Record summary: This 97-nucleotide sequence from Ursus americanus belongs to the Rfam family "Z6 small nucleolar RNA". For this family Rfam cites "Purified box C/D snoRNPs are able to reproduce site-specific 2'-O-methylation of target RNA in vitro" (Galardi et al., Mol Cell Biol, 2002). Gene Ontology terms of the family: nucleolus and RNA processing. The source organism's lineage runs through Eukaryota, Craniata, Teleostomi, Sarcopterygii and Ursus. Rfam 15.1 lists 212 matches to the family in 144 species.
RNA sequence: UGCUGGUCGUGAAGCACCCCCUCUCGGAAUCCUGGGCCCUGCCGGGGGUGAGCCAGUGCGAGCUGUCUGUCCAUCCAUCCCACCCUCCGACCCAGCA
Numbered sequence: 001u002g003c004u005g006g007u008c009g010u011g012a013a014g015c016a017c018c019c020c021c022u023c024u025c026g027g028a029a030u031c032c033u034g035g036g037c038c039c040u041g042c043c044g045g046g047g048g049u050g051a052g053c054c055a056g057u058g059c060g061a062g063c064u065g066u067c068u069g070u071c072c073a074u075c076c077a078u079c080c081c082a083c084c085c086u087c088c089g090a091c092c093c094a095g096c097a
Base pairs, nucleotide, nucleotide: 001097002096003095004094005093006092